[Rfam]
RNA sequence: AACGUUCAUCCCUUAGGGGACGGAAGUAGUCAUAAGACGAAGGAACGCAUU
Numbered sequence: 001a002a003c004g005u006u007c008a009u010c011c012c013u014u015a016g017g018g019g020a021c022g023g024a025a026g027u028a029g030u031c032a033u034a035a036g037a038c039g040a041a042g043g044a045a046c047g048c049a050u051u
Stems, first nucleotide, its partner, number of pairs: 003047005009020004023048001029038003